[Rfam]
Nucleotides: 092
Base pairs, nucleotide, nucleotide: 006017007016008015009014042072043071049066052062053061054060055059
Number, partner (000 for none) and nucleotide at each position: 001000u002000g003000c004000c005000g006017u007016g008015g009014c010000a011000c012000u013000u014009g015008c016007c017006a018000a019000a020000a021000c022000a023000u024000c025000a026000a027000a028000a029000u030000a031000c032000c033000u034000u035000g036000g037000g038000c039000u040000g041000u042072a043071u044000u045000g046000g047000u048000a049066a050000a051000c052062c053061g054060c055059c056000g057000c058000a059055g060054g061053c062052g063000g064000g065000u066049u067000g068000a069000a070000g071043a072042u073000u074000c075000g076000g077000c078000u079000c080000a081000u082000u083000g084000u085000g086000c087000a088000u089000a090000c091000a092000a